This 177-nucleotide RNA from Propionispora sp. 2/2-37 belongs to the Rfam family "glmS glucosamine-6-phosphate activated ribozyme aptamer". The family's consensus secondary structure is taken from published work. The organism belongs to Propionispora, within Bacteria. It is annotated as a riboswitch.

RNA sequence: AUAGUAAGAAAAGCGCUGGUGCUUGCGUUAUCUGGACGGAAAAGAUUCUUUACGCAAGCAGACGAGGAAGAGGUUUAUCGAGUAGUCAGCGGAUACCUCUCGGCAUGUUGCAGGCCGUAAAACAGCCCUACAAAACCACCGGGCGACUCGUGGGACAAAAAGGCUGCCGCAAAGACA
Numbered sequence: 001a002u003a004g005u006a007a008g009a010a011a012a013g014c015g016c017u018g019g020u021g022c023u024u025g026c027g028u029u030a031u032c033u034g035g036a037c038g039g040a041a042a043a044g045a046u047u048c049u050u051u052a053c054g055c056a057a058g059c060a061g062a063c064g065a066g067g068a069a070g071a072g073g074u075u076u077a078u079c080g081a082g083u084a085g086u087c088a089g090c091g092g093a094u095a096c097c098u099c100u101c102g103g104c105a106u107g108u109u110g111c112a113g114g115c116c117g118u119a120a121a122a123c124a125g126c127c128c129u130a131c132a133a134a135a136c137c138a139c140c141g142g143g144c145g146a147c148u149c150g151u152g153g154g155a156c157a158a159a160a161a162g163g164c165u166g167c168c169g170c171a172a173a174g175a176c177a
Stems, first nucleotide, its partner, number of pairs: 020060008069100005078089001080087002101117004106112001123166005136153004141148002